The family of this 120-nucleotide RNA sequence from Qiania dongpingensis is "THF (Tetrahydrofolate) riboswitch aptamer". The match comes from Rfam's covariance-model search (66 bits). On this family, see Ames et al., Chem Biol 2010: "A eubacterial riboswitch class that senses the coenzyme tetrahydrofolate".
RNA sequence: GGUAGAGUAGGUAUUGUGCGUUAAGUGUCACUGGAUGGAAUGUUGAAAGUGAACGAAGGGUGCCGGGUCACAGUUGAUUUGGUGAAAAGGCACCUGCGUUACAAUACCGCGUUCGCUACU
Numbered sequence: 001g002g003u004a005g006a007g008u009a010g011g012u013a014u015u016g017u018g019c020g021u022u023a024a025g026u027g028u029c030a031c032u033g034g035a036u037g038g039a040a041u042g043u044u045g046a047a048a049g050u051g052a053a054c055g056a057a058g059g060g061u062g063c064c065g066g067g068u069c070a071c072a073g074u075u076g077a078u079u080u081g082g083u084g085a086a087a088a089g090g091c092a093c094c095u096g097c098g099u100u101a102c103a104a105u106a107c108c109g110c111g112u113u114c115g116c117u118a119c120u
Stems, first nucleotide, its partner, number of pairs: 001120005010108009019098003025054002028052005038114005058095007